[Rfam]
RNA: mir-153 microRNA precursor family
Organism: Strongylocentrotus purpuratus
RNA sequence: AGCCCGAUCAUUUUUGUGUUUAUGCAACUUUUGUAUUUUCACCGAUCAGAGUAGUUGCAUAGUCACAAAAGUGAUUGGGAG
Numbered sequence: 001a002g003c004c005c006g007a008u009c010a011u012u013u014u015u016g017u018g019u020u021u022a023u024g025c026a027a028c029u030u031u032u033g034u035a036u037u038u039u040c041a042c043c044g045a046u047c048a049g050a051g052u053a054g055u056u057g058c059a060u061a062g063u064c065a066c067a068a069a070a071g072u073g074a075u076u077g078g079g080a081g
Stems, first nucleotide, its partner, number of pairs: 003079004008074011020062001023059007